Shown here is a 205-nucleotide sequence from Malus baccata, a member of the family "Plant small nucleolar RNA U3". Small nucleolar RNAs (snoRNAs) are involved in the processing and modification of rRNA in the nucleolus. The literature on the family includes a 2010 paper in RNA Biol by Marz and Stadler, "Comparative analysis of eukaryotic U3 snoRNA". The match comes from Rfam's covariance-model search (134 bits).
RNA sequence: UCAAGGCCUUACUUGAACAGGAUUUGUUCUAUAGGAUCGAACCUCUGUAUCCUUGAUUUCAAAGGAGACAGGAACCUCAACCUGGUGGAUGAAACAUGACCGUGCAAUCAGAGCGUGAUCUAAUAGCUUGUGGUUUCUCGCUUUACAUCAAGCGGUAGAUGAUAGUUCCAAGCCAGUUUGGGUGGUCGCAUGGUUGUCUGAGGUU
Numbered sequence: 001u002c003a004a005g006g007c008c009u010u011a012c013u014u015g016a017a018c019a020g021g022a023u024u025u026g027u028u029c030u031a032u033a034g035g036a037u038c039g040a041a042c043c044u045c046u047g048u049a050u051c052c053u054u055g056a057u058u059u060c061a062a063a064g065g066a067g068a069c070a071g072g073a074a075c076c077u078c079a080a081c082c083u084g085g086u087g088g089a090u091g092a093a094a095c096a097u098g099a100c101c102g103u104g105c106a107a108u109c110a111g112a113g114c115g116u117g118a119u120c121u122a123a124u125a126g127c128u129u130g131u132g133g134u135u136u137c138u139c140g141c142u143u144u145a146c147a148u149c150a151a152g153c154g155g156u157a158g159a160u161g162a163u164a165g166u167u168c169c170a171a172g173c174c175a176g177u178u179u180g181g182g183u184g185g186u187c188g189c190a191u192g193g194u195u196g197u198c199u200g201a202g203g204u205u
Base pairs, nucleotide, nucleotide: 001040002039003037007035008034009033015029016028017027018026019025020024045071046070047069048068050066051065052064053063054062080204081203082202099194100193101192102191103190104189105188107186108185109184110183112167113166114165123156124155126153127152128151129150130149133141134140169180170179171178172177
By type it is a C/D-box small nucleolar RNA.